[Rfam]
RNA sequence: CUCUACUCUCGUGGUCAGAUGAUAUAUACUCAAGGGUGUAUAUCCAGUACAGAGAGGAUAAAGGGGCUUACUUCCAUGCUAUAAUGCAAAAAAUAUACUUGUUAUGAAUGCCGAGAGUAAUCUUUCAAAGGUAAAAUCUGCAACGCAUAA
Numbered sequence: 001c002u003c004u005a006c007u008c009u010c011g012u013g014g015u016c017a018g019a020u021g022a023u024a025u026a027u028a029c030u031c032a033a034g035g036g037u038g039u040a041u042a043u044c045c046a047g048u049a050c051a052g053a054g055a056g057g058a059u060a061a062a063g064g065g066g067c068u069u070a071c072u073u074c075c076a077u078g079c080u081a082u083a084a085u086g087c088a089a090a091a092a093a094u095a096u097a098c099u100u101g102u103u104a105u106g107a108a109u110g111c112c113g114a115g116a117g118u119a120a121u122c123u124u125u126c127a128a129a130g131g132u133a134a135a136a137u138c139u140g141c142a143a144c145g146c147a148u149a150a
Stems, first nucleotide, its partner, number of pairs: 003057001006056004014050002021044009078087002102150005109142003113138002120132005
Description:
The family of this 150-nucleotide RNA sequence from Fervidicella metallireducens is "RT-14 RNA". It is annotated as a small RNA.